[Rfam]
RNA: Wolbachia sRNA 46
RNA sequence: UGCUGUUCCAGUGUGUAGGUGUCAUCCCAGUGCCCAGACACUGGGAUCCAGAAAAAUUCAAGCACACUAUGCAGCAUUGUCAGUCAAAGAGCUGGAUUCCAGUGUCAAGCACUGGAAUGACACCACCCGCAAAUU
Numbered sequence: 001u002g003c004u005g006u007u008c009c010a011g012u013g014u015g016u017a018g019g020u021g022u023c024a025u026c027c028c029a030g031u032g033c034c035c036a037g038a039c040a041c042u043g044g045g046a047u048c049c050a051g052a053a054a055a056a057u058u059c060a061a062g063c064a065c066a067c068u069a070u071g072c073a074g075c076a077u078u079g080u081c082a083g084u085c086a087a088a089g090a091g092c093u094g095g096a097u098u099c100c101a102g103u104g105u106c107a108a109g110c111a112c113u114g115g116a117a118u119g120a121c122a123c124c125a126c127c128c129g130c131a132a133a134u135u
Stems, first nucleotide, its partner, number of pairs: 011130003015126001020122006027115007037106015